Shown here is a 77-nucleotide RNA sequence from Alligator mississippiensis, a member of the family "Mammalian CPEB3 ribozyme".
Its family is annotated with RNA nuclease activity in the Gene Ontology.
The family's consensus secondary structure is taken from published work.
The mammalian CPEB3 ribozyme is a self cleaving RNA located in the second intron of the CPEB3 gene which belongs to a family of genes regulating messenger RNA polyadenylation.
RNA sequence: AGAGAACAAAUUCAAGGCCAUAGCAGAAAUGCUCAUGGCGCAGCCUGAUAGAUUCCAAUGAAUCUGUGAUUUCUGCU
Numbered sequence: 001a002g003a004g005a006a007c008a009a010a011u012u013c014a015a016g017g018c019c020a021u022a023g024c025a026g027a028a029a030u031g032c033u034c035a036u037g038g039c040g041c042a043g044c045c046u047g048a049u050a051g052a053u054u055c056c057a058a059u060g061a062a063u064c065u066g067u068g069a070u071u072u073c074u075g076c077u
Base pairs, nucleotide, nucleotide: 016045017044018043022077023076024075025074026073027072028071030040031039049066050065051064052063053062054061055060